[Rfam]
RNA sequence: AGCAAAGUCUUCUAGGGUUCCGAUAGUUCACUCUGUCUGGUCCGAGAGAAGACGCCUAGUAUUGUUUAGUUACACGGUAGGAUAAAAGCCUAGGAGUU
Numbered sequence: 001a002g003c004a005a006a007g008u009c010u011u012c013u014a015g016g017g018u019u020c021c022g023a024u025a026g027u028u029c030a031c032u033c034u035g036u037c038u039g040g041u042c043c044g045a046g047a048g049a050a051g052a053c054g055c056c057u058a059g060u061a062u063u064g065u066u067u068a069g070u071u072a073c074a075c076g077g078u079a080g081g082a083u084a085a086a087a088g089c090c091u092a093g094g095a096g097u098u
Stems, first nucleotide, its partner, number of pairs: 007053006015043002020040002022037001023034001025032002054071001056069004073093001075096001079091003
Annotation: Shown here is a 98-nucleotide sequence from Fundicoccus ignavus, a member of the family "Guanidine-I riboswitch aptamer". Rfam's curators write: This family represents a conserved RNA structure found upstream of the ykkC and yxkD genes in Bacillus subtilis and related genes in other bacteria. On this family, see Battaglia et al., RNA 2017: "Structural basis for guanidine sensing by the ykkC family of riboswitches". NCBI's taxonomy places the organism under Bacteria, Bacillota, Bacilli, Aerococcaceae, Fundicoccus. The pairing is the family consensus, mapped onto this sequence. It scores 75 bits against the family's covariance model. The family has 100 seed sequences and 1,509 matches in Rfam 15.1.